[Rfam]
Overview: Rfam assigns this 78-nucleotide sequence from Astyanax mexicanus to the family "mir-216 microRNA precursor family". Clan: mir-216 clan. The family's consensus secondary structure was predicted with WAR.
Nucleotides: 078
Stems, first nucleotide, its partner, number of pairs: 004075004010069008020060003023056001026054006
Number, partner (000 for none) and nucleotide at each position: 001000c002000g003000c004075u005074g006073g007072u008000g009000a010069a011068a012067u013066c014065u015064c016063a017062g018000c019000u020060g021059g022058c023056a024000a025000c026054u027053g028052u029051g030050a031049g032000u033000c034000u035000u036000u037000c038000u039000u040000u041000c042000a043000g044000c045000u046000c047000c048000u049031c050030u051029c052028a053027c054026a055000a056023u057000g058022g059021c060020c061000g062017c063016u064015g065014g066013g067012a068011u069010u070000a071000u072007g073006c074005u075004a076000a077000g078000u